[Rfam]
Record summary: mir-87 microRNA precursor family: a 73-nucleotide sequence from Cotesia congregata. On this family, see Stark et al., Genome Res 2007: "Systematic discovery and characterization of fly microRNAs using 12 Drosophila genomes". NCBI's taxonomy places the organism under Eukaryota, Opisthokonta, Protostomia, Dicondylia, Cotesia.
RNA sequence: UUCGUACGUGCCUGACUCGUUGCUCUGCCCUGGAUUUAACAGUGGGUGAGCAAAGUUUCAGGUGUGUCCGCGG
Numbered sequence: 001u002u003c004g005u006a007c008g009u010g011c012c013u014g015a016c017u018c019g020u021u022g023c024u025c026u027g028c029c030c031u032g033g034a035u036u037u038a039a040c041a042g043u044g045g046g047u048g049a050g051c052a053a054a055g056u057u058u059c060a061g062g063u064g065u066g067u068c069c070g071c072g073g
Stems, first nucleotide, its partner, number of pairs: 003070002006067002009064007018055001020053002023050003028046003